Shown here is a 131-nucleotide RNA sequence from Fukomys damarensis, a member of the family "Small nucleolar RNA SNORA1".
The source organism's lineage runs through Eukaryota, Teleostomi, Sarcopterygii, Tetrapoda and Fukomys.
The family's RNA type in Rfam is H/ACA-box small nucleolar RNA.
Rfam's curators write: ACA1 is a member of the H/ACA class of snoRNA that guide the sites of modification of uridines to pseudouridines.

RNA sequence: AGCCUCAUUCUGGAUAAGAAUGGGCACGGCUGACUUGCGUCCAAAAUCGGUCACUGCGGCUGAAUUGAGACAGGUGGUGCCUCUAUCAUAGUAAGUGUAUCACCAUGGUGACCAUAAAUCCUGCAACACUU
Number, nucleotide and partner (000 for none) at each position: 001a000002g060003c059004c058005u000006c056007a055008u000009u000010c000011u000012g000013g000014a000015u000016a000017a000018g000019a000020a000021u043022g042023g041024g040025c039026a000027c037028g000029g000030c000031u000032g000033a000034c000035u000036u000037g027038c000039g025040u024041c023042c022043a021044a000045a000046a000047u000048c000049g000050g000051u000052c000053a000054c000055u007056g006057c000058g004059g003060c002061u000062g000063a000064a000065u000066u000067g000068a000069g000070a000071c123072a122073g121074g120075u000076g000077g000078u000079g000080c000081c000082u000083c000084u110085a109086u108087c107088a106089u105090a000091g000092u000093a000094a000095g000096u000097g000098u000099a000100u000101c000102a000103c000104c000105a089106u088107g087108g086109u085110g084111a000112c000113c000114a000115u000116a000117a000118a000119u000120c074121c073122u072123g071124c000125a000126a000127c000128a000129c000130u000131u000